[Rfam]
RNA sequence: UCCCAAAGAUUUUGUCAGGAUAUUCUAUCGAGUGACAUCUUUUUAUGUCUCUCCUACCUAUAUAGUCUGUCUGUUACAUCUUUGGAAGAGCAAGAUCGUCGCCCGGCCAUCUUCCCGUUUUGGGUUCUUUUUGCCACCGAUGCCUCGUUUUGAGGCGUCACACUAGACGCAUCGUGAAAUCUAUGAGUUGAACUUAGAGCAGUAUUUUCUUCUUGAGAAUUUCUACCAUCUCUUUGUUCGUAGUAAGAAAUCACACAUCC
Numbered sequence: 001u002c003c004c005a006a007a008g009a010u011u012u013u014g015u016c017a018g019g020a021u022a023u024u025c026u027a028u029c030g031a032g033u034g035a036c037a038u039c040u041u042u043u044u045a046u047g048u049c050u051c052u053c054c055u056a057c058c059u060a061u062a063u064a065g066u067c068u069g070u071c072u073g074u075u076a077c078a079u080c081u082u083u084g085g086a087a088g089a090g091c092a093a094g095a096u097c098g099u100c101g102c103c104c105g106g107c108c109a110u111c112u113u114c115c116c117g118u119u120u121u122g123g124g125u126u127c128u129u130u131u132u133g134c135c136a137c138c139g140a141u142g143c144c145u146c147g148u149u150u151u152g153a154g155g156c157g158u159c160a161c162a163c164u165a166g167a168c169g170c171a172u173c174g175u176g177a178a179a180u181c182u183a184u185g186a187g188u189u190g191a192a193c194u195u196a197g198a199g200c201a202g203u204a205u206u207u208u209c210u211u212c213u214u215g216a217g218a219a220u221u222u223c224u225a226c227c228a229u230c231u232c233u234u235u236g237u238u239c240g241u242a243g244u245a246a247g248a249a250a251u252c253a254c255a256c257a258u259c260c
Stems, first nucleotide, its partner, number of pairs: 003085005018072005025065004034049005097169004104139003114124003141157007174254004180248003189240005196233004202223001204221001205219004
RNA: Small nucleolar RNA snR191
Organism: Pichia membranifaciens